[Rfam]
RNA sequence: AGUUAAUAUCAAGAGUUGAGCCCGGCUCAACGCCAACCUGCUUCCGGGCAAGGUGGAGCUCCCAUUGCAGGAGGGAAGAUAUGGCCGAUCUGGCAACACCGGUUUUUAUC
Numbered sequence: 001a002g003u004u005a006a007u008a009u010c011a012a013g014a015g016u017u018g019a020g021c022c023c024g025g026c027u028c029a030a031c032g033c034c035a036a037c038c039u040g041c042u043u044c045c046g047g048g049c050a051a052g053g054u055g056g057a058g059c060u061c062c063c064a065u066u067g068c069a070g071g072a073g074g075g076a077a078g079a080u081a082u083g084g085c086c087g088a089u090c091u092g093g094c095a096a097c098a099c100c101g102g103u104u105u106u107u108a109u110c
Base pairs, nucleotide, nucleotide: 006082007081008080009079010078015031016030017029018028019027020026033056034055037053038052039051040049041048042047046104084094085093086092087091
The family of this 110-nucleotide sequence from Granulicella mallensis is "SAM-I/IV (S-adenosyl methionine) riboswitch aptamer".
Its Rfam clan is "SAM clan".
It scores 43 bits against the family's covariance model.
Its family is annotated with S-adenosylmethionine metabolic process and regulation of gene expression in the Gene Ontology.
The literature on the family includes a 2008 paper in RNA by Weinberg et al., "The aptamer core of SAM-IV riboswitches mimics the ligand-binding site of SAM-I riboswitches".